[Rfam]
The family of this 63-nucleotide RNA from Naja naja is "Selenocysteine insertion sequence 1". Gene Ontology term of the family: selenocysteine incorporation. By type it is a cis-regulatory element. The organism belongs to Naja, within Eukaryota.
RNA sequence: AAUGGUGUUUAUGACAUAGUUAGAUUAAAGCCUUUGGGAAGUCUAAUUGCUGAUGUUGCCAUU
Numbered sequence: 001a002a003u004g005g006u007g008u009u010u011a012u013g014a015c016a017u018a019g020u021u022a023g024a025u026u027a028a029a030g031c032c033u034u035u036g037g038g039a040a041g042u043c044u045a046a047u048u049g050c051u052g053a054u055g056u057u058g059c060c061a062u063u
Stems, first nucleotide, its partner, number of pairs: 001063005017049009031038002
Dot-bracket structure: (((((...........(((((((((.....((....))..))))))))).........)))))